[Rfam]
RNA sequence: GGGCAGUGAUGAGUAUUGAUGAAAGUCAUGCACCACUCUGAAUAAUCAGUGAUGAUAACCUUUCUCUUACCCAUUUUUAUACCUGAGCCC
Numbered sequence: 001g002g003g004c005a006g007u008g009a010u011g012a013g014u015a016u017u018g019a020u021g022a023a024a025g026u027c028a029u030g031c032a033c034c035a036c037u038c039u040g041a042a043u044a045a046u047c048a049g050u051g052a053u054g055a056u057a058a059c060c061u062u063u064c065u066c067u068u069a070c071c072c073a074u075u076u077u078u079a080u081a082c083c084u085g086a087g088c089c090c
Stems, first nucleotide, its partner, number of pairs: 001090004
The family of this 90-nucleotide RNA sequence from Daucus carota is "Small nucleolar RNA Z221/R21b". Rfam links the family to the GO terms nucleolus and RNA processing. Lineage of the source: Eukaryota > Viridiplantae > Streptophyta > Embryophyta > Daucus carota. The base pairs follow the family's consensus structure, which was predicted with WAR. The family has 12 seed sequences and 588 matches in Rfam 15.1. It is annotated as a C/D-box small nucleolar RNA.